[Rfam]
RNA sequence: CCUCCGGUUCUUGGCAGGCCCGGCUCGCCGUGCCCGGCUCUGUAUGGGCGGAGGAAGAGCAGCAACCGGAGCGGCGUCUUCGGUACCCGCGGCCCAUCCGCGGGGUUCUGCCCUCCCGCGCCGGGACACGC
Numbered sequence: 001c002c003u004c005c006g007g008u009u010c011u012u013g014g015c016a017g018g019c020c021c022g023g024c025u026c027g028c029c030g031u032g033c034c035c036g037g038c039u040c041u042g043u044a045u046g047g048g049c050g051g052a053g054g055a056a057g058a059g060c061a062g063c064a065a066c067c068g069g070a071g072c073g074g075c076g077u078c079u080u081c082g083g084u085a086c087c088c089g090c091g092g093c094c095c096a097u098c099c100g101c102g103g104g105g106u107u108c109u110g111c112c113c114u115c116c117c118g119c120g121c122c123g124g125g126a127c128a129c130g131c
Stems, first nucleotide, its partner, number of pairs: 001054005015042004020037001022035001023033002067123003071119002086104007
Small nucleolar RNA SNORA57: a 131-nucleotide sequence from Meleagris gallopavo. About the family: U99 belongs to the H/ACA class of snoRNAs which are thought to guide the sites of modification of uridines to pseudouridines, the target for this family is unknown. The match comes from Rfam's covariance-model search (57 bits).